[Rfam]
RNA sequence: AACGUGGCUGUCUAGGGUUCCGUUGACCUGCCAAGGUCAAGCUGGUCCGAGAGACGGCGUAUGGCGCUUAGGUCCGGUGCGGACCGCCAUAUUACACGGAAGGACAAAAGCCUGGGAGAC
Numbered sequence: 001a002a003c004g005u006g007g008c009u010g011u012c013u014a015g016g017g018u019u020c021c022g023u024u025g026a027c028c029u030g031c032c033a034a035g036g037u038c039a040a041g042c043u044g045g046u047c048c049g050a051g052a053g054a055c056g057g058c059g060u061a062u063g064g065c066g067c068u069u070a071g072g073u074c075c076g077g078u079g080c081g082g083a084c085c086g087c088c089a090u091a092u093u094a095c096a097c098g099g100a101a102g103g104a105c106a107a108a109a110g111c112c113u114g115g116g117a118g119a120c
Stems, first nucleotide, its partner, number of pairs: 007058006015048002020045002022042001023040006059092008095115001097118001101113003
The record is a 120-nucleotide RNA sequence from Cohnella nanjingensis, which matches "Guanidine-I riboswitch aptamer" in Rfam. From the family's description: This family represents a conserved RNA structure found upstream of the ykkC and yxkD genes in Bacillus subtilis and related genes in other bacteria. The function of this family is unclear although it has been suggested that it may function to switch on efflux pumps and detoxification systems in response to harmful environmental molecules. The literature on the family includes a 2021 paper in RNA by Trachman RJ 3rd and Ferre-D'Amare, "An uncommon [K(+)(Mg(2+))2] metal ion triad imparts stability and selectivity to the Guanidine-I riboswitch".